[Rfam]
DUF3800-I RNA: a 130-nucleotide RNA. The family's RNA type in Rfam is small RNA. From the family's description: Actinobacteria, Firmicutes, Fusobacteria, Proteobacteria (1 example), Tenericutes (2 examples).
Nucleotides: 130
Stems, first nucleotide, its partner, number of pairs: 007032005012026005035089006045081003048057003061078002064075003093120010
Number, partner (000 for none) and nucleotide at each position: 001000u002000a003000a004000c005000a006000c007032u008031g009030c010029g011028g012026g013025u014024a015023g016022a017000a018000g019000a020000u021000g022016u023015c024014u025013a026012u027000g028011c029010c030009g031008u032007a033000u034000a035089c036088u037087c038086u039085g040084c041000g042000g043000u044000a045081u046080c047079g048057a049056a050055u051000u052000a053000g054000c055050g056049u057048u058000u059000a060000a061078g062077c063000g064075a065074u066073c067000u068000u069000g070000u071000a072000a073066g074065a075064u076000a077062g078061c079047c080046g081045a082000c083000c084040g085039u086038g087037g088036g089035g090000g091000c092000u093120u094119a095118g096117g097116g098115u099114u100113g101112c102111u103000u104000a105000a106000a107000u108000g109000u110000u111102g112101g113100c114099a115098a116097c117096c118095c119094u120093a121000u122000u123000a124000u125000u126000u127000u128000u129000u130000a